[Rfam]
RNA sequence: UGUCUCCUCCACCCUCCUCCUUUGGUGGAUUCAGCCCAAACUUCGGUUUGGGCUUUUUUUU
Numbered sequence: 001u002g003u004c005u006c007c008u009c010c011a012c013c014c015u016c017c018u019c020c021u022u023u024g025g026u027g028g029a030u031u032c033a034g035c036c037c038a039a040a041c042u043u044c045g046g047u048u049u050g051g052g053c054u055u056u057u058u059u060u061u
Base pairs, nucleotide, nucleotide: 008029009028010027011026012025013024033054034053035052036051037050038049039048040047
RNA: Betaproteobacteria toxic small RNA